[Rfam]
RNA sequence: UCAGGGCCAAGGGGAACACAUUAGCAGCCUCCACGCGGCGUUCCCUGGGUGAAUGUACACAACGUUUGUGUACAUUCAGCGAAUUCUAAG
Numbered sequence: 001u002c003a004g005g006g007c008c009a010a011g012g013g014g015a016a017c018a019c020a021u022u023a024g025c026a027g028c029c030u031c032c033a034c035g036c037g038g039c040g041u042u043c044c045c046u047g048g049g050u051g052a053a054u055g056u057a058c059a060c061a062a063c064g065u066u067u068g069u070g071u072a073c074a075u076u077c078a079g080c081g082a083a084u085u086c087u088a089a090g
Stems, first nucleotide, its partner, number of pairs: 012045006021089004026084001027039003050078013
The family of this 90-nucleotide RNA sequence from Pseudolycoriella hygida is "Mammalian CPEB3 ribozyme". The source organism's lineage runs through Eukaryota, Bilateria, Ecdysozoa, Allotriocarida and Pseudolycoriella. Rfam links the family to the GO term RNA nuclease activity.